[Rfam]
Purine riboswitch aptamer: a 102-nucleotide sequence from Mesobacillus subterraneus.

RNA sequence: UACUAAUUUGUCAUAAUUCGUCGUAUAAUCUUGGGGAUAAGGCCCAAAAGUUUCUACCGAGCUACCGUAAAUGGCUUGACUACGAGGGAUAGAAUACUGGCA
Numbered sequence: 001u002a003c004u005a006a007u008u009u010g011u012c013a014u015a016a017u018u019c020g021u022c023g024u025a026u027a028a029u030c031u032u033g034g035g036g037a038u039a040a041g042g043c044c045c046a047a048a049a050g051u052u053u054c055u056a057c058c059g060a061g062c063u064a065c066c067g068u069a070a071a072u073g074g075c076u077u078g079a080c081u082a083c084g085a086g087g088g089a090u091a092g093a094a095u096a097c098u099g100g101c102a
Base pairs, nucleotide, nucleotide: 018088019087021085022084023083024082025081029049031047032046033045034044035043058078059077060076061075062074063073064072